[Rfam]
RNA sequence: CCUGUGGAGUGUCAUAUCCAAUGUAAGUAGCUUCGGCAAAAGCAGGCACGAAGAAGCAGGAA
Numbered sequence: 001c002c003u004g005u006g007g008a009g010u011g012u013c014a015u016a017u018c019c020a021a022u023g024u025a026a027g028u029a030g031c032u033u034c035g036g037c038a039a040a041a042g043c044a045g046g047c048a049c050g051a052a053g054a055a056g057c058a059g060g061a062a
Base pairs, nucleotide, nucleotide: 001060002059003058004057005056009049010048011047012046013045022044023043024042030037031036